[Rfam]
RNA: Small nucleolar RNA SNORA20
Organism: Phyllostomus discolor
RNA sequence: CUUUCCAUUUAUUUGCUGCUAUCGUCUUUUCAAUGGUAUGAGCAGUUGUACAGAUGGGUAAAGUAACAUUAGGCCAUUAUAAAUUGAGAUGGAAUACUCAUUUCACCUCUUCUGCAUGCAUAGUCCAGACACUG
Numbered sequence: 001c002u003u004u005c006c007a008u009u010u011a012u013u014u015g016c017u018g019c020u021a022u023c024g025u026c027u028u029u030u031c032a033a034u035g036g037u038a039u040g041a042g043c044a045g046u047u048g049u050a051c052a053g054a055u056g057g058g059u060a061a062a063g064u065a066a067c068a069u070u071a072g073g074c075c076a077u078u079a080u081a082a083a084u085u086g087a088g089a090u091g092g093a094a095u096a097c098u099c100a101u102u103u104c105a106c107c108u109c110u111u112c113u114g115c116a117u118g119c120a121u122a123g124u125c126c127a128g129a130c131a132c133u134g
Stems, first nucleotide, its partner, number of pairs: 004058005015046006022038001025036002069128002072125003076121001078116001080114002086109003090105006